A member of the RNA family "SAM riboswitch aptamer (S box leader)" from Chitinophaga parva, 115 nucleotides long.
RNA sequence: UACUUAUCCAGAAAGGCGGAGGGACUUGGCCCUGCGAUGCCUUAGCAACCAUCCUGCGCAAGCAGGAAAAGGUGCUAAUUCCGGCCCACGGUGCAGAUCGCGGGAUAGAUAAGUU
Numbered sequence: 001u002a003c004u005u006a007u008c009c010a011g012a013a014a015g016g017c018g019g020a021g022g023g024a025c026u027u028g029g030c031c032c033u034g035c036g037a038u039g040c041c042u043u044a045g046c047a048a049c050c051a052u053c054c055u056g057c058g059c060a061a062g063c064a065g066g067a068a069a070a071g072g073u074g075c076u077a078a079u080u081c082c083g084g085c086c087c088a089c090g091g092u093g094c095a096g097a098u099c100g101c102g103g104g105a106u107a108g109a110u111a112a113g114u115u
Base pairs, nucleotide, nucleotide: 002114003113004112005111006110007109008108013043014042015041016040017039021032022031023030026084027083028082029081044076045075046074047073049072050071052067053066054065080107085104086103087102089100090099

About this RNA
The family has 457 seed sequences and 9,625 matches in Rfam 15.1.